[Rfam]
RNA sequence: UACGAUACCCAUCAAAGGAGUAGUUCCCCAUCUAGGAGCUACUUUACCAUAUUUCGAAUUU
Numbered sequence: 001u002a003c004g005a006u007a008c009c010c011a012u013c014a015a016a017g018g019a020g021u022a023g024u025u026c027c028c029c030a031u032c033u034a035g036g037a038g039c040u041a042c043u044u045u046a047c048c049a050u051a052u053u054u055c056g057a058a059u060u061u
Base pairs, nucleotide, nucleotide: 017045018044019043020042021041022040023039024038025037026036027035
Background:
This 61-nucleotide RNA sequence from Capsicum baccatum belongs to the Rfam family "Plastid-psbN 5UTR RNA". The family has 63 seed sequences and 2,345 matches in Rfam 15.1. About the family: Plastid psbN is a non-coding RNA (ncRNA) recognised in plastids. It was reported as a conserved 11 stem-loop in the prime untranslated region (5UTR) of psbN genes. It has been reported that the motif is retained in a subset of mature transcripts in barley, which can suggests a possible role in transcript alternative 5 prime processing. A search with the family's covariance model found it, with a score of 81 bits.